[Rfam]
Rfam assigns this 117-nucleotide RNA sequence from Nannospalax galili to the family "U5 spliceosomal RNA". The family has 180 seed sequences and 28,527 matches in Rfam 15.1. Taxonomically the source falls in Nannospalax (Eukaryota, Dipnotetrapodomorpha, Tetrapoda, Myomorpha). The match comes from Rfam's covariance-model search (102 bits). Rfam classes the family as a spliceosomal small nuclear RNA.
RNA sequence: AUACUCUGGUUUCUCUUCAGAUCAUACAAAUCUUUUGCCUUUUACUAAAGAUUUCCAUGGAGAGAAACAACUCUGAGUCUAAACCCAAUUUUUUAAAGCCUUGCACAUAGCAAGGUU
Numbered sequence: 001a002u003a004c005u006c007u008g009g010u011u012u013c014u015c016u017u018c019a020g021a022u023c024a025u026a027c028a029a030a031u032c033u034u035u036u037g038c039c040u041u042u043u044a045c046u047a048a049a050g051a052u053u054u055c056c057a058u059g060g061a062g063a064g065a066a067a068c069a070a071c072u073c074u075g076a077g078u079c080u081a082a083a084c085c086c087a088a089u090u091u092u093u094u095a096a097a098g099c100c101u102u103g104c105a106c107a108u109a110g111c112a113a114g115g116u117u
Stems, first nucleotide, its partner, number of pairs: 003078004009068011028054008096117001098116006